[Rfam]
RNA sequence: GGCGUCUUUCGCCGCGGCGGGGCUCGACCGCUGACGGAAGUGAUCGUCGGUUACAUCGACCAGCACAAGGACCGUCUUGGGGUCGAGCCGCUCUGCGAGGUCCUGCAGGUCGCCCGG
Numbered sequence: 001g002g003c004g005u006c007u008u009u010c011g012c013c014g015c016g017g018c019g020g021g022g023c024u025c026g027a028c029c030g031c032u033g034a035c036g037g038a039a040g041u042g043a044u045c046g047u048c049g050g051u052u053a054c055a056u057c058g059a060c061c062a063g064c065a066c067a068a069g070g071a072c073c074g075u076c077u078u079g080g081g082g083u084c085g086a087g088c089c090g091c092u093c094u095g096c097g098a099g100g101u102c103c104u105g106c107a108g109g110u111c112g113c114c115c116g117g
Base pairs, nucleotide, nucleotide: 016032017031018030019029020028078117080115081114082113089112090111092109093108094107095106096105097104